[Rfam]
RNA sequence: UGUCCCCGUCGCGACUGGCGCCACAGGUGGUCCACCACCGGGGAGCGACGGCACCACCGACUCCGAGGUCGUCCGCCUGGGCCGAGGGU
Numbered sequence: 001u002g003u004c005c006c007c008g009u010c011g012c013g014a015c016u017g018g019c020g021c022c023a024c025a026g027g028u029g030g031u032c033c034a035c036c037a038c039c040g041g042g043g044a045g046c047g048a049c050g051g052c053a054c055c056a057c058c059g060a061c062u063c064c065g066a067g068g069u070c071g072u073c074c075g076c077c078u079g080g081g082c083c084g085a086g087g088g089u
Stems, first nucleotide, its partner, number of pairs: 006051007015042002017077004027038004067083004
A member of the RNA family "ZMP/ZTP riboswitch aptamer (pfl RNA motif)" from Georgenia muralis, 89 nucleotides long. It scores 56 bits against the family's covariance model. The base pairs follow the family's consensus structure, which is taken from published work. The organism belongs to Georgenia, within Bacteria.